[Rfam]
RNA: c-di-AMP riboswitch aptamer (ydaO/yuaA leader)
RNA sequence: CAUCGACCAACACCGCACGGCAGGAGCGGGGGACCCAGGUAAGUCGCCGCACCGGAGAUCACACCGGUACGGCUAGGGGUUGAGUCGUGCCGCCUCAGGGCGGCACGGCCGGGCAUCUCCCGCCCGAACCCGACAGCUCACCUCGCAGGCGCCGGAGAGGAACA
Numbered sequence: 001c002a003u004c005g006a007c008c009a010a011c012a013c014c015g016c017a018c019g020g021c022a023g024g025a026g027c028g029g030g031g032g033a034c035c036c037a038g039g040u041a042a043g044u045c046g047c048c049g050c051a052c053c054g055g056a057g058a059u060c061a062c063a064c065c066g067g068u069a070c071g072g073c074u075a076g077g078g079g080u081u082g083a084g085u086c087g088u089g090c091c092g093c094c095u096c097a098g099g100g101c102g103g104c105a106c107g108g109c110c111g112g113g114c115a116u117c118u119c120c121c122g123c124c125c126g127a128a129c130c131c132g133a134c135a136g137c138u139c140a141c142c143u144c145g146c147a148g149g150c151g152c153c154g155g156a157g158a159g160g161a162a163c164a
Base pairs, nucleotide, nucleotide: 007149008148013024014023026146027145028144029143030142031141036076077131078130079129085108086107087106088105089104090103091102092101093100094099111125112124113123114122